The family of this 54-nucleotide sequence from Nitrospirillum viridazoti is "serC leader". This family is a putative regulatory RNA structure that is found upstream of the serC-serA operon in some alpha-proteobacteria. The final stem of the structure overlaps the ribosome binding site of the serC reading frame. On this family, see Corbino et al., Genome Biol 2005: "Evidence for a second class of S-adenosylmethionine riboswitches and other regulatory RNA motifs in alpha-proteobacteria".
RNA sequence: CGGCGGGACACGCCUCCCCAACGAGGCGCAACUAUUCUGCAAGGAAUAGCAUCA
Numbered sequence: 001c002g003g004c005g006g007g008a009c010a011c012g013c014c015u016c017c018c019c020a021a022c023g024a025g026g027c028g029c030a031a032c033u034a035u036u037c038u039g040c041a042a043g044g045a046a047u048a049g050c051a052u053c054a
Stems, first nucleotide, its partner, number of pairs: 011028006032049003036045003
The organism belongs to Nitrospirillum viridazoti, within Bacteria.